[Rfam]
Shown here is a 400-nucleotide RNA from Acetobacter nitrogenifigens, a member of the family "Bacterial RNase P class A". A search with the family's covariance model found it, with a score of 303 bits. Pairs were carried over by alignment from the consensus structure, which is taken from published work. It is annotated as a ribozyme. The organism belongs to Acetobacter nitrogenifigens, within Bacteria.

RNA sequence: CCAGACGGCCGGGCGAUCGCUGUCGCAUUUGCGGUGGAGGAAAGUCCGGGCUCCACGGGAGAACGGUGCCGGCUAACGGCCGGCGAGGGCGACCUCAGGGAAAGUGCCACAGAAAACAAACCGCCUUCCGGGCCUGGAGACAGGCUGGAGGUAAGGGUGAAACGGUGCGGUAAGAGCGCACCGCGCUUCCGGUAACGGCGGCGGCAGGGCAAACCCCACCGGGAGCAAGACCGAAUAGGGGCGACAGGCGGGGCGGCGCGAGCCGUCGCCGCCGGAGGUUCUCCCGCCUCGUCGCCCGGGUUGGUCGCGUGAGGCGCGUCGCAAGACGCGUCCCAGAGGAAUGAUCGUCCCGAUCCUUUCGAGGGUCGGACAGAACCCGGCUUACAGGCCGUCUGGCUCC
Numbered sequence: 001c002c003a004g005a006c007g008g009c010c011g012g013g014c015g016a017u018c019g020c021u022g023u024c025g026c027a028u029u030u031g032c033g034g035u036g037g038a039g040g041a042a043a044g045u046c047c048g049g050g051c052u053c054c055a056c057g058g059g060a061g062a063a064c065g066g067u068g069c070c071g072g073c074u075a076a077c078g079g080c081c082g083g084c085g086a087g088g089g090c091g092a093c094c095u096c097a098g099g100g101a102a103a104g105u106g107c108c109a110c111a112g113a114a115a116a117c118a119a120a121c122c123g124c125c126u127u128c129c130g131g132g133c134c135u136g137g138a139g140a141c142a143g144g145c146u147g148g149a150g151g152u153a154a155g156g157g158u159g160a161a162a163c164g165g166u167g168c169g170g171u172a173a174g175a176g177c178g179c180a181c182c183g184c185g186c187u188u189c190c191g192g193u194a195a196c197g198g199c200g201g202c203g204g205c206a207g208g209g210c211a212a213a214c215c216c217c218a219c220c221g222g223g224a225g226c227a228a229g230a231c232c233g234a235a236u237a238g239g240g241g242c243g244a245c246a247g248g249c250g251g252g253g254c255g256g257c258g259c260g261a262g263c264c265g266u267c268g269c270c271g272c273c274g275g276a277g278g279u280u281c282u283c284c285c286g287c288c289u290c291g292u293c294g295c296c297c298g299g300g301u302u303g304g305u306c307g308c309g310u311g312a313g314g315c316g317c318g319u320c321g322c323a324a325g326a327c328g329c330g331u332c333c334c335a336g337a338g339g340a341a342u343g344a345u346c347g348u349c350c351c352g353a354u355c356c357u358u359u360c361g362a363g364g365g366u367c368g369g370a371c372a373g374a375a376c377c378c379g380g381c382u383u384a385c386a387g388g389c390c391g392u393c394u395g396g397c398u399c400c
Stems, first nucleotide, its partner, number of pairs: 001396010011385001012349007020037007042383003046380005051225004059284001061282001064221005069083005084098001085096004099216002104214002106210003121156002123152006130145001164182006183205001184203004189198003229306004239297006275290005313332008